[Rfam]
RNA sequence: UCUGUGACAAUCUUGCAUUUGGGGCUUACUUACUGUGUACUUGUUACACUUGUAAAGCCCCGGGAAGGUCUGAGAUGUGUCUUUAAUGCUCCAGAAGGGCGCUUGCAUUUUGCAAGGCGAGAACACCAGAAAUCUGCGAUGAGGUUUCAAAGCCAAGGAUUCGCUCUGGCGAUAGGUGGUGGAGCUUUAUCGUUGGAAUUUCUCGUGACCGGCUGUUUUAGUUCAAUUUGCGGGCUAGUGUUUUACUAGAACUCAAUUCAGACUAAUCUGUUACAGA
Number, nucleotide and partner (000 for none) at each position: 001u277002c276003u275004g274005u000006g000007a271008c270009a269010a000011u000012c234013u233014u232015g231016c230017a229018u000019u000020u000021g061022g060023g059024g058025c057026u000027u000028a000029c000030u000031u000032a000033c000034u000035g049036u048037g047038u046039a045040c000041u000042u000043g000044u000045u039046a038047c037048a036049c035050u000051u000052g000053u000054a000055a000056a000057g025058c024059c023060c022061c021062g000063g000064g000065a000066a000067g000068g000069u000070c261071u260072g259073a258074g257075a000076u000077g000078u000079g209080u208081c207082u000083u000084u000085a000086a000087u101088g100089c099090u098091c097092c000093a000094g000095a000096a000097g091098g090099g089100c088101g087102c116103u115104u114105g113106c112107a000108u000109u000110u000111u000112g106113c105114a104115a103116g102117g206118c205119g204120a203121g202122a201123a200124c000125a000126c000127c000128a000129g000130a000131a000132a000133u000134c000135u000136g000137c192138g000139a000140u000141g000142a000143g000144g000145u000146u000147u000148c000149a000150a000151a000152g000153c000154c000155a000156a000157g000158g000159a000160u000161u000162c000163g000164c000165u000166c000167u000168g000169g000170c000171g000172a000173u000174a000175g000176g000177u000178g000179g000180u000181g000182g000183a000184g000185c000186u000187u000188u000189a000190u000191c000192g137193u000194u000195g000196g000197a000198a000199u000200u123201u122202c121203u120204c119205g118206u117207g081208a080209c079210c000211g000212g000213c000214u000215g000216u000217u000218u000219u000220a000221g000222u000223u000224c000225a000226a000227u000228u000229u017230g016231c015232g014233g013234g012235c249236u248237a247238g246239u245240g000241u000242u000243u000244u000245a239246c238247u237248a236249g235250a000251a000252c000253u000254c000255a000256a000257u074258u073259c072260a071261g070262a000263c000264u000265a000266a000267u000268c000269u009270g008271u007272u000273a000274c004275a003276g002277a001
RNA: Nuclear RNase P